[Rfam]
RNA sequence: GGAGUAGGGCAAAUGAUCGCUGGUUUAUCCCCUUGCGGGGAAAGACGGGAGGAAAGUCCGGGCUCCACAGGGCAUGGUGCUGGGUAACGCCCAGUCUCGGCGACGAGGAGGAAAGCGCAACAGAAAGCAGACCGCCUCGCCAAUGGCGGGGUAAGGGUGAAACGGUGAGGUAAGAGCUCACCAGUCUCGGUGGCGACAUCGGGAGCUAGGCAAGCCCCACCCGGAGCAAGACCGAAUAGGAGAGCGUUUGAGGGCGGCCCGUCCGAGCUCUCGGGUUGGUUGCUUGAUCCCACUGGUAACAGUGGGGCUAGAGGAAUGAUCAUUGCCUCGUUCUUCCUUCGGGGAGGAUGGGGAACAGAACCCGGCUUAUGACCUGCUCCAAAU
Numbered sequence: 001g002g003a004g005u006a007g008g009g010c011a012a013a014u015g016a017u018c019g020c021u022g023g024u025u026u027a028u029c030c031c032c033u034u035g036c037g038g039g040g041a042a043a044g045a046c047g048g049g050a051g052g053a054a055a056g057u058c059c060g061g062g063c064u065c066c067a068c069a070g071g072g073c074a075u076g077g078u079g080c081u082g083g084g085u086a087a088c089g090c091c092c093a094g095u096c097u098c099g100g101c102g103a104c105g106a107g108g109a110g111g112a113a114a115g116c117g118c119a120a121c122a123g124a125a126a127g128c129a130g131a132c133c134g135c136c137u138c139g140c141c142a143a144u145g146g147c148g149g150g151g152u153a154a155g156g157g158u159g160a161a162a163c164g165g166u167g168a169g170g171u172a173a174g175a176g177c178u179c180a181c182c183a184g185u186c187u188c189g190g191u192g193g194c195g196a197c198a199u200c201g202g203g204a205g206c207u208a209g210g211c212a213a214g215c216c217c218c219a220c221c222c223g224g225a226g227c228a229a230g231a232c233c234g235a236a237u238a239g240g241a242g243a244g245c246g247u248u249u250g251a252g253g254g255c256g257g258c259c260c261g262u263c264c265g266a267g268c269u270c271u272c273g274g275g276u277u278g279g280u281u282g283c284u285u286g287a288u289c290c291c292a293c294u295g296g297u298a299a300c301a302g303u304g305g306g307g308c309u310a311g312a313g314g315a316a317u318g319a320u321c322a323u324u325g326c327c328u329c330g331u332u333c334u335u336c337c338u339u340c341g342g343g344g345a346g347g348a349u350g351g352g353g354a355a356c357a358g359a360a361c362c363c364g365g366c367u368u369a370u371g372a373c374c375u376g377c378u379c380c381a382a383a384u
Base pairs, nucleotide, nucleotide: 001380002379003378004377005376006375007374008373010371011370012324013323014322015321016320017319018318020049021048023046024045025044026043028041029040030039031038054368055367056366058365059364060363061362062361063226064225065224066223070260071259072258073257076221077220078219079218080094081093082092083091084090095109096107097106098105099104110217111216115215116214117211118210132156133155134152135151136150137149138148139147140146141145164182165181166180167179168178169177184206185204186203187202188201189200190199191198192197230281231280232279233278240272241271242270243269244268245267252264253263254262255261288307289306290305291304292303293302294301295300
A member of the RNA family "Bacterial RNase P class A" from Desulforhabdus amnigena, 384 nucleotides long. It scores 322 bits against the family's covariance model. Gene Ontology terms of the family: tRNA processing, dimeric ribonuclease P complex and ribonuclease P activity.